[Rfam]
RNA sequence: CGGGGAUUCAGCAGCCUCCCCAAUCUAAGACGAUUCUCGUCCAAGGUCUGC
Numbered sequence: 001c002g003g004g005g006a007u008u009c010a011g012c013a014g015c016c017u018c019c020c021c022a023a024u025c026u027a028a029g030a031c032g033a034u035u036c037u038c039g040u041c042c043a044a045g046g047u048c049u050g051c
Stems, first nucleotide, its partner, number of pairs: 002021005011051004029041005
RNA: chrB-b RNA